RNA: c-di-AMP riboswitch aptamer (ydaO/yuaA leader)
RNA sequence: CGCUCCCCGGUGCCCCAACAACCCAGGCAGAGACGGGGGACCCAGAGUCUCCGGACCGCCAACCGUUCAUGGCCGGUCCUAGGGGUGAAGCCGCACAACCAGAAUCUCGCUGGCGCGCGGCCGGAUGGCCUCAUCCGAAUCCGACAGCUAACUCCGCAGGCGUUGAGAGGUAACCA
Numbered sequence: 001c002g003c004u005c006c007c008c009g010g011u012g013c014c015c016c017a018a019c020a021a022c023c024c025a026g027g028c029a030g031a032g033a034c035g036g037g038g039g040a041c042c043c044a045g046a047g048u049c050u051c052c053g054g055a056c057c058g059c060c061a062a063c064c065g066u067u068c069a070u071g072g073c074c075g076g077u078c079c080u081a082g083g084g085g086u087g088a089a090g091c092c093g094c095a096c097a098a099c100c101a102g103a104a105u106c107u108c109g110c111u112g113g114c115g116c117g118c119g120g121c122c123g124g125a126u127g128g129c130c131u132c133a134u135c136c137g138a139a140u141c142c143g144a145c146a147g148c149u150a151a152c153u154c155c156g157c158a159g160g161c162g163u164u165g166a167g168a169g170g171u172a173a174c175c176a
Base pairs, nucleotide, nucleotide: 003032004031005030034156035155036154037153038152043082083142084141085140091120092119093118094117123136124135125134126133